[Rfam]
RNA sequence: UCACUGUUCAUUCAGGAUUUUGCGCCUAUAUAGAGACUGUUCGUUUCUGCGGACUAUGGUGAUAAAUUGUGAUGUGCAAUAGACACAGCGGACCCGGGGGCAGUACCCGGCGGCUCCACCAUCUAUUUCGUUUCGGCGAAGUAAUUGAAGGGGCCGAACCAGGAUCGACGUGUGUUCAAAAGCAUUAUUUUUGCCCGGCCUGAGUAUGCCGUGAUUGCUCGCAAACUAUAAGUGCAAACGAUAAUGAAGCACUCGCUAUUGCUGCCUAACCCAUUGAUCGCAAGAUCAUAAGUUAGAAAGCUAAUGCGCGGUUGAACCCACCGGGCAACAGAAGGGAAUUCA
Numbered sequence: 001u002c003a004c005u006g007u008u009c010a011u012u013c014a015g016g017a018u019u020u021u022g023c024g025c026c027u028a029u030a031u032a033g034a035g036a037c038u039g040u041u042c043g044u045u046u047c048u049g050c051g052g053a054c055u056a057u058g059g060u061g062a063u064a065a066a067u068u069g070u071g072a073u074g075u076g077c078a079a080u081a082g083a084c085a086c087a088g089c090g091g092a093c094c095c096g097g098g099g100g101c102a103g104u105a106c107c108c109g110g111c112g113g114c115u116c117c118a119c120c121a122u123c124u125a126u127u128u129c130g131u132u133u134c135g136g137c138g139a140a141g142u143a144a145u146u147g148a149a150g151g152g153g154c155c156g157a158a159c160c161a162g163g164a165u166c167g168a169c170g171u172g173u174g175u176u177c178a179a180a181a182g183c184a185u186u187a188u189u190u191u192u193g194c195c196c197g198g199c200c201u202g203a204g205u206a207u208g209c210c211g212u213g214a215u216u217g218c219u220c221g222c223a224a225a226c227u228a229u230a231a232g233u234g235c236a237a238a239c240g241a242u243a244a245u246g247a248a249g250c251a252c253u254c255g256c257u258a259u260u261g262c263u264g265c266c267u268a269a270c271c272c273a274u275u276g277a278u279c280g281c282a283a284g285a286u287c288a289u290a291a292g293u294u295a296g297a298a299a300g301c302u303a304a305u306g307c308g309c310g311g312u313u314g315a316a317c318c319c320a321c322c323g324g325g326c327a328a329c330a331g332a333a334g335g336g337a338a339u340u341c342a
Base pairs, nucleotide, nucleotide: 039054040053041052042051043050058195059194060193061192062191069188070187071186072185073184074183075182084174085173086172088171089170090169094110095109096108097107098106111156112155113154114153115152116151117150196211197210198209199208207217309323310322311321312320314341315340316339319336

Record summary
Rfam assigns this 342-nucleotide RNA from Parasphingorhabdus halotolerans to the family "Alphaproteobacteria transfer-messenger RNA". A reference for the family is Williams and Bartel (1996), "Phylogenetic analysis of tmRNA secondary structure", RNA. The source organism's lineage runs through Bacteria, Pseudomonadota, Sphingomonadales, Sphingorhabdaceae and Parasphingorhabdus. It scores 225 bits against the family's covariance model. Bacterial tmRNA, also known as 10Sa RNA or SsrA, is named for its dual tRNA and mRNA-like properties.